Rfam assigns this 96-nucleotide sequence from Microbacterium sp. CH12i to the family "Glycine riboswitch aptamer".
For this family Rfam cites "A glycine-dependent riboswitch that uses cooperative binding to control gene expression" (Mandal et al., Science, 2004).
The source organism's lineage runs through Bacteria, Bacillati, Actinomycetota, Micrococcales and Microbacterium.
[Rfam]
RNA sequence: ACGACCCGUGCGGGAGAGCUCCGGUGAAUGCAGCCGGGCACCGAAGGAGCAAGCCUCCCCGUCAAUCUCUCAGGUACCGCGUACCGCGCAGGUCAG
Numbered sequence: 001a002c003g004a005c006c007c008g009u010g011c012g013g014g015a016g017a018g019c020u021c022c023g024g025u026g027a028a029u030g031c032a033g034c035c036g037g038g039c040a041c042c043g044a045a046g047g048a049g050c051a052a053g054c055c056u057c058c059c060c061g062u063c064a065a066u067c068u069c070u071c072a073g074g075u076a077c078c079g080c081g082u083a084c085c086g087c088g089c090a091g092g093u094c095a096g
Stems, first nucleotide, its partner, number of pairs: 006091001008089006020038006040075003043071002047069003053062002